[Rfam]
RNA sequence: GGUUGCAAGCUGAAGGCCACAGCAGAAGCGCUCAUGGUGCGGCCCCGUCAAAGUCCAACAAAUCUGCAAAUUCUGCU
Numbered sequence: 001g002g003u004u005g006c007a008a009g010c011u012g013a014a015g016g017c018c019a020c021a022g023c024a025g026a027a028g029c030g031c032u033c034a035u036g037g038u039g040c041g042g043c044c045c046c047g048u049c050a051a052a053g054u055c056c057a058a059c060a061a062a063u064c065u066g067c068a069a070a071u072u073c074u075g076c077u
Stems, first nucleotide, its partner, number of pairs: 015044004021077007028040003049066002052063001054061001
The family of this 77-nucleotide sequence from Alligator mississippiensis is "Mammalian CPEB3 ribozyme".
Rfam describes the family as follows. The mammalian CPEB3 ribozyme is a self cleaving RNA located in the second intron of the CPEB3 gene which belongs to a family of genes regulating messenger RNA polyadenylation.
Rfam links the family to the GO term RNA nuclease activity.